[Rfam]
RNA sequence: AGAGCUGCCGAGGGGCGUCCCGCACGGGGCUGAGAAGAACCCUUAGAACCUGAUCCGGCUCACACCGGCGGAGGGACGGCGGACCGGUCUCGG
Numbered sequence: 001a002g003a004g005c006u007g008c009c010g011a012g013g014g015g016c017g018u019c020c021c022g023c024a025c026g027g028g029g030c031u032g033a034g035a036a037g038a039a040c041c042c043u044u045a046g047a048a049c050c051u052g053a054u055c056c057g058g059c060u061c062a063c064a065c066c067g068g069c070g071g072a073g074g075g076a077c078g079g080c081g082g083a084c085c086g087g088u089c090u091c092g093g
Stems, first nucleotide, its partner, number of pairs: 006081005011043004016037001017030005049074003055068004

This 93-nucleotide RNA from Parvularcula dongshanensis belongs to the Rfam family "TPP riboswitch aptamer (THI element)". Pairs were carried over by alignment from the consensus structure, which is taken from published work.